[Rfam]
This 62-nucleotide sequence from Gouania willdenowi belongs to the Rfam family "mir-2187 microRNA precursor family". The source organism's lineage runs through Eukaryota, Metazoa, Acanthomorphata, Blenniimorphae and Gouania. The base pairs follow the family's consensus structure, which was predicted with RNAalifold.
RNA sequence: UUAAUUAGUAUAGCCUGUUUUAGUGAUAUCCGUAAUUCUUUACAGGCUAUGCUAAUCUGUGC
Numbered sequence: 001u002u003a004a005u006u007a008g009u010a011u012a013g014c015c016u017g018u019u020u021u022a023g024u025g026a027u028a029u030c031c032g033u034a035a036u037u038c039u040u041u042a043c044a045g046g047c048u049a050u051g052c053u054a055a056u057c058u059g060u061g062c
Stems, first nucleotide, its partner, number of pairs: 004056015024034002